[Rfam]
Actino-pnp RNA: a 69-nucleotide RNA from Sediminihabitans luteus.

RNA sequence: UCCGGUCCUCGGUAGUGGCCCCCGGACCUCGCACGCGCGAGCAGCCGUGGACCUCGAUCGAAGACCGCC
Numbered sequence: 001u002c003c004g005g006u007c008c009u010c011g012g013u014a015g016u017g018g019c020c021c022c023c024g025g026a027c028c029u030c031g032c033a034c035g036c037g038c039g040a041g042c043a044g045c046c047g048u049g050g051a052c053c054u055c056g057a058u059c060g061a062a063g064a065c066c067g068c069c
Stems, first nucleotide, its partner, number of pairs: 003067005009061005017053002020050002023047003028041005
It is annotated as a cis-regulatory element.